Rfam assigns this 73-nucleotide RNA sequence from Pseudogymnoascus sp. VKM F-4516 to the family "Selenocysteine transfer RNA".
NCBI's taxonomy places the organism under Eukaryota, Ascomycota, saccharomyceta, Leotiomycetes, Pseudogymnoascus.
The family is grouped with related families in Rfam's "tRNA clan".

[Rfam]
RNA sequence: AGGGAUAUGCCGUAAAUGGUUUUGCGUUUGGAUUGCAAAUCUAAAAUAUGGGGUUCGAUUCCUCCAUAUCUCU
Numbered sequence: 001a002g003g004g005a006u007a008u009g010c011c012g013u014a015a016a017u018g019g020u021u022u023u024g025c026g027u028u029u030g031g032a033u034u035g036c037a038a039a040u041c042u043a044a045a046a047u048a049u050g051g052g053g054u055u056c057g058a059u060u061c062c063u064c065c066a067u068a069u070c071u072c073u
Stems, first nucleotide, its partner, number of pairs: 001073009011026006027045006050064004